A member of the RNA family "RAGATH-5 RNA" from Faecalibacterium prausnitzii, 52 nucleotides long. Rfam classes the family as a ribozyme. The sequence is in the family's curated seed alignment. The source organism's lineage runs through Bacteria, Bacillota, Eubacteriales, Faecalibacterium and Faecalibacterium prausnitzii. A reference for the family is Weinberg et al. (2015), "New classes of self-cleaving ribozymes revealed by comparative genomics analysis", Nat Chem Biol.
RNA sequence: CCGGAUACCUUGACGGGCCGCACCACGAAAAGCGACCCGAUCCCACCACCCC
Number, nucleotide and partner (000 for none) at each position: 001c000002c000003g024004g023005a000006u000007a000008c000009c000010u000011u000012g000013a041014c039015g038016g037017g036018c000019c034020g033021c032022a000023c004024c003025a000026c000027g000028a000029a000030a000031a000032g021033c020034g019035a000036c017037c016038c015039g014040a000041u013042c000043c000044c000045a000046c000047c000048a000049c000050c000051c000052c000